Record summary: Shown here is an 88-nucleotide sequence from a Pirellulaceae bacterium, a member of the family "c-di-GMP-I-GGC riboswitch aptamer".

RNA sequence: CUCGAUAAGGGCAAACCGGCCGCAAGGCCGCGACGCAAAGCUACAGGAUCUCUUGUUCAUUCGAGCCAGAGAUUGCCAGCUGCCGAAA
Numbered sequence: 001c002u003c004g005a006u007a008a009g010g011g012c013a014a015a016c017c018g019g020c021c022g023c024a025a026g027g028c029c030g031c032g033a034c035g036c037a038a039a040g041c042u043a044c045a046g047g048a049u050c051u052c053u054u055g056u057u058c059a060u061u062c063g064a065g066c067c068a069g070a071g072a073u074u075g076c077c078a079g080c081u082g083c084c085g086a087a088a
Stems, first nucleotide, its partner, number of pairs: 003085002011036002017030005034075001039081004046077002048073006
Description:
The source organism's lineage runs through Bacteria, Pseudomonadati, Planctomycetota, Pirellulales and Pirellulaceae. A search with the family's covariance model found it, with a score of 60 bits.